Shown here is a 70-nucleotide RNA sequence from Pediculus humanus, a member of the family "mir-1000 microRNA precursor family". The family's consensus secondary structure was predicted with RNAalifold. A search with the family's covariance model found it, with a score of 75 bits. Lineage of the source: Eukaryota > Metazoa > Protostomia > Hexapoda > Pediculus humanus.

Nucleotides: 070
Stems, first nucleotide, its partner, number of pairs: 003068004012059007022049008
Number, partner (000 for none) and nucleotide at each position: 001000g002000c003068c004067u005066g006065a007000g008000a009000u010000a011000u012059u013058g014057u015056c016055c017054u018053g019000u020000c021000a022049c023048a024047g025046c026045a027044g028043u029042a030000c031000u032000g033000u034000a035000u036000u037000u038000g039000a040000g041000a042029u043028a044027c045026u046025g047024c048023u049022g050000u051000a052000u053018c054017g055016g056015g057014a058013c059012a060000u061000a062000g063000c064000c065006u066005c067004a068003g069000a070000c